A member of the RNA family "Small nucleolar RNA SNORA40" from Dipodomys ordii, 129 nucleotides long.
RNA sequence: UGUGUGUGUGUGUGUCUUUGUUUAAUUUGUAACAAAGCCUUACAAACAGGUGCAAACAGUAAAUCCCUCUUUUGCAACACAGAACUCAUUGUUGAGUAUGAGAUUUUGGUAAAUGUAAGAAUGAAUAUG
Number, nucleotide and partner (000 for none) at each position: 001u054002g053003u052004g051005u050006g000007u048008g047009u046010g000011u044012g000013u000014g039015u000016c037017u036018u035019u034020g033021u032022u000023u000024a000025a000026u031027u000028u000029g000030u000031a026032a021033c020034a019035a018036a017037g016038c000039c014040u000041u000042a000043c000044a011045a000046a009047c008048a007049g000050g005051u004052g003053c002054a001055a000056a000057c000058a000059g000060u000061a000062a000063a126064u125065c000066c123067c000068u000069c000070u120071u119072u118073u117074g116075c000076a000077a000078c000079a000080c108081a107082g106083a105084a104085c102086u101087c100088a099089u098090u000091g000092u000093u000094g000095a000096g000097u000098a089099u088100g087101a086102g085103a000104u084105u083106u082107u081108g080109g000110u000111a000112a000113a000114u000115g000116u074117a073118a072119g071120a070121a000122u000123g066124a000125a064126u063127a000128u000129g000
Gene Ontology terms of the family: RNA processing and nucleolus. Pairs were carried over by alignment from the consensus structure, which was predicted with RNAalifold. The snoRNA ACA 40 belongs to the H/ACA family of snoRNAs and guides the pseudouridylation of 28S rRNA subunit at position U4565. NB This family has a high threshold value to exclude a large number of closely related sequences that do not appear to have conserved H and ACA boxes, and may be pseudogenes. The family's RNA type in Rfam is H/ACA-box small nucleolar RNA.